[Rfam]
RNA: GA-cis RNA
Organism: Lachnospiraceae bacterium 3-1
RNA sequence: AGAAGGAGGAAGGCAAUGCGAAGCAUUUUAAGAAUGCCUUCCGACGAGUUGCCGCCGAGCGAAGGCGAGGGGGCGUUACCUUAA
Numbered sequence: 001a002g003a004a005g006g007a008g009g010a011a012g013g014c015a016a017u018g019c020g021a022a023g024c025a026u027u028u029u030a031a032g033a034a035u036g037c038c039u040u041c042c043g044a045c046g047a048g049u050u051g052c053c054g055c056c057g058a059g060c061g062a063a064g065g066c067g068a069g070g071g072g073g074c075g076u077u078a079c080c081u082u083a084a
Stems, first nucleotide, its partner, number of pairs: 008042006015027004051074003055070002059066002